[Rfam]
RNA: Selenocysteine transfer RNA
RNA sequence: GCCCAGAUAACCCUCAGUGGUCUGGGGUGCAGGCUUCAAAUCUGUGGCUGUAUAGGGGCAGAGUGGUUCAAUUCCACCCUCUGGGU
Numbered sequence: 001g002c003c004c005a006g007a008u009a010a011c012c013c014u015c016a017g018u019g020g021u022c023u024g025g026g027g028u029g030c031a032g033g034c035u036u037c038a039a040a041u042c043u044g045u046g047g048c049u050g051u052a053u054a055g056g057g058g059c060a061g062a063g064u065g066g067u068u069c070a071a072u073u074c075c076a077c078c079c080u081c082u083g084g085g086u
Stems, first nucleotide, its partner, number of pairs: 001086007012027006028046006048061004063077004